[Rfam]
RNA sequence: AAAAAAGGUAGAGGCGCCAUUUAUAAAGAGUAUUCUAUUUAAGCGGGCACGCGUUGUAAAAAAUAGAAGAAAGGUAUGAUGGCCGAAGGAUAAUAACCUUUAUGCAGAGAGAGUUAUCCUGGGUAUGCAUAAAAUAUAUGCAUAACUGUCACGAAAGUGGAGGGCUACAAUUUUA
Numbered sequence: 001a002a003a004a005a006a007g008g009u010a011g012a013g014g015c016g017c018c019a020u021u022u023a024u025a026a027a028g029a030g031u032a033u034u035c036u037a038u039u040u041a042a043g044c045g046g047g048c049a050c051g052c053g054u055u056g057u058a059a060a061a062a063a064u065a066g067a068a069g070a071a072a073g074g075u076a077u078g079a080u081g082g083c084c085g086a087a088g089g090a091u092a093a094u095a096a097c098c099u100u101u102a103u104g105c106a107g108a109g110a111g112a113g114u115u116a117u118c119c120u121g122g123g124u125a126u127g128c129a130u131a132a133a134a135u136a137u138a139u140g141c142a143u144a145a146c147u148g149u150c151a152c153g154a155a156a157g158u159g160g161a162g163g164g165c166u167a168c169a170a171u172u173u174u175a
Base pairs, nucleotide, nucleotide: 008168009167010166011165016083017082018081019080020079021078023077024076025075033068034067035066036065037064038063039062040061087120088119089118090117091116092115093114094113098109099108100107101106121147122146124144125143126142127141128140129139130138131137149160150159151158152157
A member of the RNA family "Lysine riboswitch aptamer" from Clostridium sp. DSM 8431, 175 nucleotides long. About the family: Riboswitches are metabolite binding domains within certain messenger RNAs that serve as precision sensors for their corresponding targets. Taxonomically the source falls in Clostridium (Bacteria, Clostridia, Eubacteriales, Clostridiaceae). The match comes from Rfam's covariance-model search (98 bits).